Bacterial RNase P class A: a 387-nucleotide RNA from bacterium HR24. The family's RNA type in Rfam is ribozyme. Rfam's curators write: Ribonuclease P (RNase P) is a ubiquitous endoribonuclease, found in archaea, bacteria and eukarya as well as chloroplasts and mitochondria. Its best characterised activity is the generation of mature 5'-ends of tRNAs by cleaving the 5'-leader elements of precursor-tRNAs. Rfam links the family to the GO terms ribonuclease P activity, tRNA processing and dimeric ribonuclease P complex. The match comes from Rfam's covariance-model search (259 bits).
[Rfam]
RNA sequence: ACAGCAGGCCGGGUGGUCGCUCUCCGCCGUGGCGCGGAGGGAGGAAGGUCCGGGCUCCACCGGGCAGCGUGCUGGGUAACGCCCAGGCGGGGUGACCCGCGGAAAGUGGCACAGAAACCAUACCGCCCGGGCUGCCGACGGCCCGGGUAAGGGUGAAAAGGUGGGGUAAGAGCCCACCAGCGGCAGGGCGACCUGCCGGCUGGCCAAACCCCACGCGGAGCAAGGCCAAAUAGGAGGGCAGGCCCCCUCGUGGGGCCUAGGGACGCCCGGCCCGACGCCCUCGGGUAGGCCGCUAGAGCCUCUCCGGAAGGGGAGGCCCAGAGUGAUGACCACCGGCCGCCCCACGAGGGGUGGCUACAGAACCCGGCCUAUAGGCCUGCUAGGCCC
Dot-bracket structure: ..((((((((((((((((.((((((((......))))))))....[[[.[[[[[((((...[[[[.((((((((((.....)))))(((((....)))))((...(((((............(((((((((((......)))))))))..)).......((((((.......)))))).((((((((....))))))).)..)))..)))))))))))))...((((......((((((.....................((.(]]]].).))...)))))).....))))......((((((((....))))))))..........)))))))............................]]]]]]]].).))))))))......